Rfam assigns this 123-nucleotide RNA sequence from Nitratireductor mangrovi to the family "Rhizobiales sRNA Atu_C8". By type it is a small RNA. For this family Rfam cites "Deep sequencing uncovers numerous small RNAs on all four replicons of the plant pathogen Agrobacterium tumefaciens" (Wilms et al., RNA Biol, 2012). Pairs were carried over by alignment from the consensus structure, which was predicted with CMfinder.
RNA sequence: CAUGAACAAGACGGUCAUUCUCGUAGUAGGAACGCGCAUGGGCAAGGCGGUGUAACCGCCGGGCGACAGCACCCCAUGCGCGACGAACGGGCUCCCAAAAGGGGGCCUUUUUUAUUGUCUGGA
Numbered sequence: 001c002a003u004g005a006a007c008a009a010g011a012c013g014g015u016c017a018u019u020c021u022c023g024u025a026g027u028a029g030g031a032a033c034g035c036g037c038a039u040g041g042g043c044a045a046g047g048c049g050g051u052g053u054a055a056c057c058g059c060c061g062g063g064c065g066a067c068a069g070c071a072c073c074c075c076a077u078g079c080g081c082g083a084c085g086a087a088c089g090g091g092c093u094c095c096c097a098a099a100a101g102g103g104g105g106c107c108u109u110u111u112u113u114a115u116u117g118u119c120u121g122g123a
Stems, first nucleotide, its partner, number of pairs: 029120003033082010046060005063070002087109001089108007